[Rfam]
RNA: pan motif
RNA sequence: AGGGCUGUAUCUGUAAGGAACGGCACCGAUGUUAGUGGAACAUGCAAAAAAAGCUUAACAGCUGCUUGGAUCCCUAGAGGACUGGGACAGCGCG
Numbered sequence: 001a002g003g004g005c006u007g008u009a010u011c012u013g014u015a016a017g018g019a020a021c022g023g024c025a026c027c028g029a030u031g032u033u034a035g036u037g038g039a040a041c042a043u044g045c046a047a048a049a050a051a052a053g054c055u056u057a058a059c060a061g062c063u064g065c066u067u068g069g070a071u072c073c074c075u076a077g078a079g080g081a082c083u084g085g086g087a088c089a090g091c092g093c094g
Base pairs, nucleotide, nucleotide: 002027003026004024005023006022007021008020010019011018062090063089064088065086066085067084068083069082071081072080073079